A member of the RNA family "Small nucleolar RNA SNORD35" from Oncorhynchus tshawytscha, 83 nucleotides long. The family's RNA type in Rfam is C/D-box small nucleolar RNA. The base pairs follow the family's consensus structure, which was predicted with PFOLD. U35 is a C/D box snoRNA located in intron 6 of ribosomal protein L13A and intron 3 of ribosomal protein S11 in humans and at homologous positions in mouse and chicken ribosomal protein genes. U35 guides the methylation of 2'-O-ribose sites in 28S rRNA.
RNA sequence: UGCAAGUGAUGUUUAUCUCACAAUGGUUUUCAGAGUCUCUGACUUUGACAACAUUGCCUCAUGGCUACAGAUGAUGCAGUUUA
Numbered sequence: 001u002g003c004a005a006g007u008g009a010u011g012u013u014u015a016u017c018u019c020a021c022a023a024u025g026g027u028u029u030u031c032a033g034a035g036u037c038u039c040u041g042a043c044u045u046u047g048a049c050a051a052c053a054u055u056g057c058c059u060c061a062u063g064g065c066u067a068c069a070g071a072u073g074a075u076g077c078a079g080u081u082u083a
Base pairs, nucleotide, nucleotide: 001078002077003076004075